This 61-nucleotide RNA sequence belongs to the Rfam family "Selenocysteine insertion sequence 1".
[Rfam]
RNA sequence: GUCAGAUGAUGAUGGCCUGGGCAGAAACCCCAUGUGGGCCGCCCAGGUUUGAACCCCUGGC
Numbered sequence: 001g002u003c004a005g006a007u008g009a010u011g012a013u014g015g016c017c018u019g020g021g022c023a024g025a026a027a028c029c030c031c032a033u034g035u036g037g038g039c040c041g042c043c044c045a046g047g048u049u050u051g052a053a054c055c056c057c058u059g060g061c
Stems, first nucleotide, its partner, number of pairs: 001061005014049009029038003